mir-223 microRNA precursor family: an 87-nucleotide RNA from Takifugu rubripes. The sequence is in the family's curated seed alignment. On this family, see Lim et al., Science 2003: "Vertebrate microRNA genes". Rfam links the family to the GO terms RISC complex and miRNA-mediated post-transcriptional gene silencing.

[Rfam]
RNA sequence: CACUUAGUGUAUUUGACAAGCUGUUCUUGACACUCUUUAUACGCGAGUGUCAGUUUGUCAAAUACCCCAAGUGAGGUGUCACUUGUC
Numbered sequence: 001c002a003c004u005u006a007g008u009g010u011a012u013u014u015g016a017c018a019a020g021c022u023g024u025u026c027u028u029g030a031c032a033c034u035c036u037u038u039a040u041a042c043g044c045g046a047g048u049g050u051c052a053g054u055u056u057g058u059c060a061a062a063u064a065c066c067c068c069a070a071g072u073g074a075g076g077u078g079u080c081a082c083u084u085g086u087c
Stems, first nucleotide, its partner, number of pairs: 001073004007067001009065014029051004034046002